[Rfam]
Rfam assigns this 308-nucleotide sequence from Macleaya cordata to the family "Plant signal recognition particle RNA". On this family, see Rosenblad et al., Nucleic Acids Res 2003: "SRPDB: Signal Recognition Particle Database". Rfam classes the family as a non-coding RNA gene. Rfam 15.1 lists 4,988 matches to the family in 266 species.
RNA sequence: GCCGAGCUCAGUAGCGCGAGCUUGUAACCUAUGUGGGGGCUUGAGAGUGGUUGGAAGCUAAUUUGUCUUUGCGGGUUGGGCCUUGUAGGGGCAAUUUCCUGAUUCGUCCGUUUCAAGCUGGGAGUUGGGUCAUGUGAAUUGGGCGUAGGCUUAGUCCACGUGGUCCUUAGAGAGGAGGGUACUGCGUCAGGCUGGUUUCACAGAGCAGCGUUCAACUUCCCGCUCUUGGCAGUGGAAGGAUAACGAGUUGGAGCUCCCAUGGCCCCAGUAAUGCCCUAAGAGUCGAGCUCAGUUGAACAACCACUUUU
Number, nucleotide and partner (000 for none) at each position: 001g040002c039003c038004g023005a022006g021007c020008u019009c018010a000011g000012u000013a000014g000015c000016g000017c000018g009019a008020g007021c006022u005023u004024g000025u000026a000027a000028c037029c036030u035031a000032u000033g000034u000035g030036g029037g028038g003039g002040c001041u000042u000043g308044a307045g306046a305047g304048u303049g302050g301051u300052u299053g298054g000055a000056a000057g294058c292059u291060a000061a000062u287063u286064u285065g284066u000067c000068u281069u280070u279071g000072c000073g276074g275075g274076u273077u000078g265079g264080g263081c262082c261083u000084u259085g258086u000087a000088g000089g256090g255091g254092c000093a000094a000095u000096u000097u000098c000099c251100u250101g249102a248103u247104u246105c245106g244107u243108c239109c238110g000111u237112u236113u235114c234115a233116a000117g230118c229119u228120g227121g226122g225123a224124g223125u222126u000127g166128g165129g164130u163131c162132a161133u160134g159135u158136g157137a000138a155139u154140u153141g152142g151143g150144c149145g000146u000147a000148g000149g144150c143151u142152u141153a140154g139155u138156c000157c136158a135159c134160g133161u132162g131163g130164u129165c128166c127167u172168u000169a000170g000171a000172g167173a000174g220175g219176a218177g217178g216179g000180u000181a000182c000183u000184g211185c210186g209187u208188c000189a000190g000191g000192c203193u202194g201195g000196u000197u000198u000199c000200a000201c194202a193203g192204a000205g000206c000207a000208g187209c186210g185211u184212u000213c000214a000215a000216c178217u177218u176219c175220c174221c000222g125223c124224u123225c122226u121227u120228g119229g118230c117231a000232g000233u115234g114235g113236a112237a111238g109239g108240a000241u000242a000243a107244c106245g105246a104247g103248u102249u101250g100251g099252a000253g000254c091255u090256c089257c000258c085259a084260u000261g082262g081263c080264c079265c078266c000267a000268g000269u000270a000271a000272u000273g076274c075275c074276c073277u000278a000279a070280g069281a068282g000283u000284c065285g064286a063287g062288c000289u000290c000291a059292g058293u000294u057295g000296a000297a000298c053299a052300a051301c050302c049303a048304c047305u046306u045307u044308u043

The base pairs follow the family's consensus structure, which is taken from published work. The match comes from Rfam's covariance-model search (218 bits).